[Rfam]
RNA: MIR5298 microRNA precursor family
Organism: Medicago truncatula
RNA sequence: UUAGGUUUUCUUCAUUUUCUUCUGGGAUUAUUUUUGUUGAAGAUUGAUGGAGAUGAUAUGAAGAUGAAAAGGACGAUAAA
Numbered sequence: 001u002u003a004g005g006u007u008u009u010c011u012u013c014a015u016u017u018u019c020u021u022c023u024g025g026g027a028u029u030a031u032u033u034u035u036g037u038u039g040a041a042g043a044u045u046g047a048u049g050g051a052g053a054u055g056a057u058a059u060g061a062a063g064a065u066g067a068a069a070a071g072g073a074c075g076a077u078a079a080a
Base pairs, nucleotide, nucleotide: 005074006073007072008071009070011068012067013066014065015064016063017062018061019060026045027044028043029042031040032039